This 104-nucleotide RNA sequence from Arabidopsis thaliana belongs to the Rfam family "Small nucleolar RNA snoR100". Rfam 15.1 lists 1,851 matches to the family in 220 species. By type it is an H/ACA-box small nucleolar RNA.
RNA sequence: GAAUGAAGGAAGCAUGGUACUGUGCACGGAAACUAAACUAUAGAUCGACAUGUCUGCCAUCUCUGAUUUUUCGUGAUGAGACGGCCUGGUUUAGAUCUACAUUC
Numbered sequence: 001g002a003a004u005g006a007a008g009g010a011a012g013c014a015u016g017g018u019a020c021u022g023u024g025c026a027c028g029g030a031a032a033c034u035a036a037a038c039u040a041u042a043g044a045u046c047g048a049c050a051u052g053u054c055u056g057c058c059a060u061c062u063c064u065g066a067u068u069u070u071u072c073g074u075g076a077u078g079a080g081a082c083g084g085c086c087u088g089g090u091u092u093a094g095a096u097c098u099a100c101a102u103u104c
Stems, first nucleotide, its partner, number of pairs: 012025004042087002045084002052077003